[Rfam]
RNA sequence: AGUAGAGUAGAUAUCGUACGUAAAGUGUCGUUGGAGGGGGAGGCUUCCGACGAACGAAGGUUAUACCGCGUUACGGUCUCGCUUCCGCUACU
Numbered sequence: 001a002g003u004a005g006a007g008u009a010g011a012u013a014u015c016g017u018a019c020g021u022a023a024a025g026u027g028u029c030g031u032u033g034g035a036g037g038g039g040g041a042g043g044c045u046u047c048c049g050a051c052g053a054a055c056g057a058a059g060g061u062u063a064u065a066c067c068g069c070g071u072u073a074c075g076g077u078c079u080c081g082c083u084u085c086c087g088c089u090a091c092u
Stems, first nucleotide, its partner, number of pairs: 001092005010080002013077006019070003025055002028053008039086005059067003
RNA: THF (Tetrahydrofolate) riboswitch aptamer
Organism: Firmicutes bacterium CAG:56